Shown here is a 74-nucleotide RNA from Candidatus Psychracetigena formicireducens, a member of the family "tRNA". The match comes from Rfam's covariance-model search (68 bits). The family's consensus secondary structure is taken from published work. Taxonomically the source falls in Candidatus Psychracetigena (Bacteria, Bacillati, Candidatus Lithacetigenota). Rfam describes the family as follows. Transfer RNA (tRNA) molecules are approximately 80 nucleotides in length.
[Rfam]
RNA sequence: GCGCCCAUAGCUCAACUGGACAGAGCGAUAGACUACGGAUCUAUAGGCUGGGGGUUCAAAUCCUCCUGGGCGCA
Numbered sequence: 001g002c003g004c005c006c007a008u009a010g011c012u013c014a015a016c017u018g019g020a021c022a023g024a025g026c027g028a029u030a031g032a033c034u035a036c037g038g039a040u041c042u043a044u045a046g047g048c049u050g051g052g053g054g055u056u057c058a059a060a061u062c063c064u065c066c067u068g069g070g071c072g073c074a
Base pairs, nucleotide, nucleotide: 001073002072003071004070005069006068007067010026011025012024013023028044029043030042031041032040050066051065052064053063054062